[Rfam]
RNA: Flavo-1 RNA
Organism: Flavobacterium muglaense
RNA sequence: UUUUAGCCCCGAUUGAAAUGAAAAUCCUUAUUGUUCUUUCUUUAAGAACAAUAAGAUUGCAAUGGAAAGCGGGAAAUAGC
Numbered sequence: 001u002u003u004u005a006g007c008c009c010c011g012a013u014u015g016a017a018a019u020g021a022a023a024a025u026c027c028u029u030a031u032u033g034u035u036c037u038u039u040c041u042u043u044a045a046g047a048a049c050a051a052u053a054a055g056a057u058u059g060c061a062a063u064g065g066a067a068a069g070c071g072g073g074a075a076a077u078a079g080c
Stems, first nucleotide, its partner, number of pairs: 009072003013068002018063002023058004029053010